[Rfam]
RNA sequence: GUUCCACAUGGUAAUGAUGUCUGCCCUGAACCGCCUUAAAAAGCUGAUGACGUCUACAAUAAU
Numbered sequence: 001g002u003u004c005c006a007c008a009u010g011g012u013a014a015u016g017a018u019g020u021c022u023g024c025c026c027u028g029a030a031c032c033g034c035c036u037u038a039a040a041a042a043g044c045u046g047a048u049g050a051c052g053u054c055u056a057c058a059a060u061a062a063u
Stems, first nucleotide, its partner, number of pairs: 010025004016054006033044002036041001
Shown here is a 63-nucleotide RNA from Flavobacterium kingsejongi, a member of the family "Fluoride riboswitch aptamer (crcB RNA motif)". A search with the family's covariance model found it, with a score of 46 bits. The source organism's lineage runs through Bacteria, Pseudomonadati, Flavobacteriia, Flavobacteriales and Flavobacterium.